Shown here is a 164-nucleotide RNA from Firmicutes bacterium CAG:882, a member of the family "Clostridiales-1 RNA". The organism belongs to Bacillota, within Bacteria. The base pairs follow the family's consensus structure, which is taken from published work.
RNA sequence: UAUAAUAAAACCAUCAACAGAUAUGGUGCGUGGCUGCUUGCAGACAAAGCACUAUAUCUAUUAGAUGGUUAAACAGACAUGAGCAAAACAUGGCGAUAGCCCGAUUUGCAAAUGGAUGUUGUGAUUUCGAGAGUGCGGAGCACGGAGAAAUCACAGUUAUUAUA
Numbered sequence: 001u002a003u004a005a006u007a008a009a010a011c012c013a014u015c016a017a018c019a020g021a022u023a024u025g026g027u028g029c030g031u032g033g034c035u036g037c038u039u040g041c042a043g044a045c046a047a048a049g050c051a052c053u054a055u056a057u058c059u060a061u062u063a064g065a066u067g068g069u070u071a072a073a074c075a076g077a078c079a080u081g082a083g084c085a086a087a088a089c090a091u092g093g094c095g096a097u098a099g100c101c102c103g104a105u106u107u108g109c110a111a112a113u114g115g116a117u118g119u120u121g122u123g124a125u126u127u128c129g130a131g132a133g134u135g136c137g138g139a140g141c142a143c144g145g146a147g148a149a150a151u152c153a154c155a156g157u158u159a160u161u162a163u164a
Stems, first nucleotide, its partner, number of pairs: 001164007010069004016062002019059011031047001032045001034043003073119003078114003083109004092101003122153007133143004